[Rfam]
RNA sequence: GGGAGUGUGAGGAGCGAACCAGCAAGAACGCCGAGACGAAACACGGAAAGUCGUCGGCGUUCUUUCUG
Numbered sequence: 001g002g003g004a005g006u007g008u009g010a011g012g013a014g015c016g017a018a019c020c021a022g023c024a025a026g027a028a029c030g031c032c033g034a035g036a037c038g039a040a041a042c043a044c045g046g047a048a049a050g051u052c053g054u055c056g057g058c059g060u061u062c063u064u065u066c067u068g
Base pairs, nucleotide, nucleotide: 025063026062027061028060029059030058031057032056033055034054035052036051037050

A member of the RNA family "Cyano-1 RNA" from Leptolyngbya sp. Cla-17, 68 nucleotides long.
NCBI's taxonomy places the organism under Bacteria, Bacillati, Leptolyngbyales, Leptolyngbyaceae, Leptolyngbya.